[Rfam]
RNA sequence: GCUCACGUAGCUCAGUCGGUAGAGCACCUCCUUGGUAAGGAGGAGGUCGCUGGUUCGAUUCCAGUCGUGAGCA
Dot-bracket structure: (((((((..((((........)))).(((((.......))))).....(((((.......)))))))))))).

A member of the RNA family "tRNA" from Novilysobacter defluvii, 73 nucleotides long. NCBI's taxonomy places the organism under Bacteria, Pseudomonadati, Pseudomonadota, Gammaproteobacteria, Novilysobacter defluvii.